The family of this 364-nucleotide sequence from Hartmannibacter diazotrophicus is "Alphaproteobacteria transfer-messenger RNA". Rfam describes the family as follows. Bacterial tmRNA, also known as 10Sa RNA or SsrA, is named for its dual tRNA and mRNA-like properties. Its role is to liberate the mRNA from a stalled ribosome. To accomplish this part of the tmRNA is used as a reading frame that ends in a translation stop signal. The broken mRNA is replaced in the ribosome by the tmRNA and translation of the tmRNA leads to addition of a proteolysis tag to the incomplete protein enabling recognition by a protease. Recently a number of permuted tmRNA genes have been found encoded in two parts. tmRNAs have been identified in eubacteria and some chloroplasts but are absent from archaeal and eukaryote nuclear genomes. The base pairs follow the family's consensus structure, which is taken from published work. By type it is a non-coding RNA gene.
RNA sequence: ACCUUUGCAAAGGAGACAGCAACCCACUAUAUAGGGGCUGCCGGUGCAAGCCGGCUAUGACGAUAAAUGGUUGGCGCAAUAAACCUAUCGGACCCGGGGGCGGUACCCGGCGCCUCCACCCAAGCCCAUGGCACUGAUUUUCCAUGGGUUUCGGCGGGGGCGAAAUAGGAUCGACGAGGGCGUAAAGGUCAUACUUUCGUUCGGCAUGGUACCACCGAUAUCGGGCCAAACUUGAUAGUUGCCAACGACAACUAUGCUCCGGUGGCUGUCGCCGCGUAAUGCGGUGCCGGUAACCGAAUCAAAGUCCUGAGGGGUAGCACUUUCAGGCGGGGUCCGGAGGCACCUGGCAACAGAAGCCUCCACU
Numbered sequence: 001a002c003c004u005u006u007g008c009a010a011a012g013g014a015g016a017c018a019g020c021a022a023c024c025c026a027c028u029a030u031a032u033a034g035g036g037g038c039u040g041c042c043g044g045u046g047c048a049a050g051c052c053g054g055c056u057a058u059g060a061c062g063a064u065a066a067a068u069g070g071u072u073g074g075c076g077c078a079a080u081a082a083a084c085c086u087a088u089c090g091g092a093c094c095c096g097g098g099g100g101c102g103g104u105a106c107c108c109g110g111c112g113c114c115u116c117c118a119c120c121c122a123a124g125c126c127c128a129u130g131g132c133a134c135u136g137a138u139u140u141u142c143c144a145u146g147g148g149u150u151u152c153g154g155c156g157g158g159g160g161c162g163a164a165a166u167a168g169g170a171u172c173g174a175c176g177a178g179g180g181c182g183u184a185a186a187g188g189u190c191a192u193a194c195u196u197u198c199g200u201u202c203g204g205c206a207u208g209g210u211a212c213c214a215c216c217g218a219u220a221u222c223g224g225g226c227c228a229a230a231c232u233u234g235a236u237a238g239u240u241g242c243c244a245a246c247g248a249c250a251a252c253u254a255u256g257c258u259c260c261g262g263u264g265g266c267u268g269u270c271g272c273c274g275c276g277u278a279a280u281g282c283g284g285u286g287c288c289g290g291u292a293a294c295c296g297a298a299u300c301a302a303a304g305u306c307c308u309g310a311g312g313g314g315u316a317g318c319a320c321u322u323u324c325a326g327g328c329g330g331g332g333u334c335c336g337g338a339g340g341c342a343c344c345u346g347g348c349a350a351c352a353g354a355a356g357c358c359u360c361c362a363c364u
Stems, first nucleotide, its partner, number of pairs: 040055005059201005069194001072191004084180003088177003094110005111162007202217003207228003212224002330345004336361006